Rfam assigns this 73-nucleotide sequence from Photorhabdus laumondii to the family "tRNA". Taxonomically the source falls in Photorhabdus laumondii subsp. laumondii (Bacteria, Gammaproteobacteria, Enterobacterales, Morganellaceae). Pairs were carried over by alignment from the consensus structure, which is taken from published work.
[Rfam]
RNA sequence: GCUGAUAUAGCUCAGUUGGUAGAGCACACCCUUGGUAAGGGUGAGGCCGGCAGUUCGAAUCUGCCUAUCAGCA
Dot-bracket structure: (((((((..((((........)))).(((((.......))))).....(((((.......)))))))))))).
Numbered sequence: 001g002c003u004g005a006u007a008u009a010g011c012u013c014a015g016u017u018g019g020u021a022g023a024g025c026a027c028a029c030c031c032u033u034g035g036u037a038a039g040g041g042u043g044a045g046g047c048c049g050g051c052a053g054u055u056c057g058a059a060u061c062u063g064c065c066u067a068u069c070a071g072c073a
Stems, first nucleotide, its partner, number of pairs: 001072007010025004027043005049065005